This 84-nucleotide RNA from Piliocolobus tephrosceles belongs to the Rfam family "mir-548 microRNA precursor family".
The family has 11 seed sequences and 3,009 matches in Rfam 15.1.
Its family is annotated with RISC complex and miRNA-mediated post-transcriptional gene silencing in the Gene Ontology.
Pairs were carried over by alignment from the consensus structure, which was predicted with WAR.

[Rfam]
RNA sequence: UAUUAGGUUGGUGCAAAAGUAACCGUGGUCUUUGCCAUUACUUUUAAUGUCAAAGACCACGAUUACUUUUGCACCAACCUAAUA
Number, nucleotide and partner (000 for none) at each position: 001u084002a083003u082004u081005a080006g079007g078008u077009u076010g075011g074012u073013g072014c071015a070016a069017a068018a067019g066020u065021a064022a063023c000024c061025g060026u059027g058028g057029u056030c055031u054032u053033u052034g051035c000036c049037a048038u047039u046040a045041c000042u000043u000044u000045u040046a039047a038048u037049g036050u000051c034052a033053a032054a031055g030056a029057c028058c027059a026060c025061g024062a000063u022064u021065a020066c019067u018068u017069u016070u015071g014072c013073a012074c011075c010076a009077a008078c007079c006080u005081a004082a003083u002084a001